[Rfam]
RNA sequence: UACUACCAAAAUCCUAUAUCCACCUCCACGUGGUGACCGCUCGAAGUUCUUUCUUAAUGAGAAACUGCAGACGGAGAAGG
Number, nucleotide and partner (000 for none) at each position: 001u000002a000003c000004u000005a000006c000007c000008a000009a000010a000011a000012u000013c080014c079015u078016a000017u076018a000019u074020c073021c000022a034023c033024c032025u000026c000027c000028a000029c000030g000031u000032g024033g023034u022035g000036a000037c000038c000039g000040c000041u000042c000043g000044a000045a066046g065047u064048u063049c000050u061051u060052u000053c059054u000055u000056a000057a000058u000059g053060a051061g050062a000063a048064a047065c046066u045067g000068c000069a000070g000071a000072c000073g020074g019075a000076g017077a000078a015079g014080g013
Rfam assigns this 80-nucleotide sequence from Hermetia illucens to the family "drz-agam-1 ribozyme".
A search with the family's covariance model found it, with a score of 40 bits.
On this family, see Webb et al., Science 2009: "Widespread occurrence of self-cleaving ribozymes".
Lineage of the source: Eukaryota > Panarthropoda > Insecta > Eumetabola > Hermetia.